Description:
A member of the RNA family "SAM riboswitch aptamer (S box leader)" from Tamaricihabitans halophyticus, 135 nucleotides long. The source organism's lineage runs through Bacteria, Actinomycetota, Pseudonocardiales, Pseudonocardiaceae and Tamaricihabitans. Gene Ontology term of the family: regulation of gene expression.
[Rfam]
Nucleotides: 135
Base pairs, nucleotide, nucleotide: 003133004132005131006130007129008128013042014041015040016039017038021031022030023029025110026109027108028107043102044101045100046099048098049097051093106127111124112123113122114121
Number, partner (000 for none) and nucleotide at each position: 001000a002000g003133c004132u005131c006130a007129u008128c009000c010000a011000g012000a013042g014041g015040g016039g017038c018000a019000g020000a021031g022030g023029g024000a025110u026109c027108g028107g029023c030022c031021c032000g033000a034000c035000g036000a037000a038017g039016c040015c041014c042013c043102g044101g045100c046099a047000a048098c049097c050000g051093g052000c053000g054000u055000a056000g057000g058000c059000g060000a061000g062000u063000g064000a065000u066000a067000c068000g069000c070000g071000a072000g073000a074000u075000u076000c077000g078000c079000g080000a081000g082000a083000u084000c085000g086000c087000c088000a089000g090000c091000g092000a093051c094000a095000a096000c097049g098048g099046u100045g101044c102043c103000a104000a105000u106127u107028c108027c109026g110025a111124c112123c113122c114121g115000g116000c117000c118000a119000u120000g121114c122113g123112g124111g125000a126000a127106a128008g129007a130006u131005g132004g133003g134000a135000a